RNA sequence: AAAACAGGCUGUAAUUGCAGCGCUUCCUGCUGUGGGAGUGCUGCCAUUUUCCUGUUGAGAGCAACUCUGUUAACACUGUUUGUGGUUUCACCCGCGCUGUGGUGAAAGCAUUUGUUCCUAAUGUGGACAAGU
Numbered sequence: 001a002a003a004a005c006a007g008g009c010u011g012u013a014a015u016u017g018c019a020g021c022g023c024u025u026c027c028u029g030c031u032g033u034g035g036g037a038g039u040g041c042u043g044c045c046a047u048u049u050u051c052c053u054g055u056u057g058a059g060a061g062c063a064a065c066u067c068u069g070u071u072a073a074c075a076c077u078g079u080u081u082g083u084g085g086u087u088u089c090a091c092c093c094g095c096g097c098u099g100u101g102g103u104g105a106a107a108g109c110a111u112u113u114g115u116u117c118c119u120a121a122u123g124u125g126g127a128c129a130a131g132u
Stems, first nucleotide, its partner, number of pairs: 003056006018043009067126003070121003075116001083110002086107007
Rfam assigns this 132-nucleotide RNA sequence from Aegithalos caudatus to the family "Small nucleolar RNA SNORA69".
A search with the family's covariance model found it, with a score of 66 bits.
Rfam's curators write: U69 is a member of the H/ACA class of small nucleolar RNAs (snoRNAs) which act as guides in the the modification of uridines to pseudouridines.